Rfam assigns this 119-nucleotide sequence from Cephalotus follicularis to the family "MIR162_1 microRNA precursor family".
The organism belongs to Cephalotus, within Eukaryota.
A search with the family's covariance model found it, with a score of 109 bits.
The family's consensus secondary structure was predicted with RNAalifold.
The literature on the family includes a 2002 paper in Genes Dev by Reinhart et al., "MicroRNAs in plants".
Clan: MIR167 microRNA precursor clan.
[Rfam]
Nucleotides: 119
Base pairs, nucleotide, nucleotide: 013107014106015105018102019101020100022098023097024096025095027093028092029091030090031089032088033087036084037083038082
Number, partner (000 for none) and nucleotide at each position: 001000g002000g003000u004000g005000a006000a007000g008000u009000c010000a011000c012000u013107g014106g015105a016000g017000g018102c019101a020100g021000c022098g023097g024096u025095u026000u027093a028092u029091c030090g031089a032088u033087c034000u035000u036084u037083u038082c039000c040000u041000g042000g043000u044000a045000g046000u047000u048000u049000u050000u051000g052000u053000u054000g055000u056000g057000a058000a059000a060000a061000a062000u063000a064000a065000u066000a067000c068000a069000a070000c071000a072000c073000a074000a075000a076000a077000a078000u079000c080000a081000u082038g083037a084036a085000u086000c087033g088032a089031u090030c091029g092028a093027u094000a095025a096024a097023c098022c099000u100020c101019u102018g103000c104000a105015u106014c107013c108000a109000g110000c111000g112000c113000u114000u115000u116000a117000a118000c119000u